[Rfam]
This 87-nucleotide RNA sequence from Paenibacillus hemerocallicola belongs to the Rfam family "c-di-GMP-I riboswitch aptamer".
The organism belongs to Paenibacillus, within Bacteria.
Rfam describes the family as follows. GEMM was predicted in a large-scale screen for bacterial structured RNA regulatory elements. Genes associated with GEMM are involved in a diverse array of functions, including chemotaxis regulation, signal transduction, secretion and chitin.
The match comes from Rfam's covariance-model search (89 bits).

RNA sequence: AGUCGAUAAAGGCAAACUUGUCGAAAGACAAGGACGCAAAGCUACAGACCUAAUGGUCGGCAGACCGAUGGUGGCUGAGUUGCCGAA
Numbered sequence: 001a002g003u004c005g006a007u008a009a010a011g012g013c014a015a016a017c018u019u020g021u022c023g024a025a026a027g028a029c030a031a032g033g034a035c036g037c038a039a040a041g042c043u044a045c046a047g048a049c050c051u052a053a054u055g056g057u058c059g060g061c062a063g064a065c066c067g068a069u070g071g072u073g074g075c076u077g078a079g080u081u082g083c084c085g086a087a
Stems, first nucleotide, its partner, number of pairs: 012037002017032006040081004045077003048072003055066004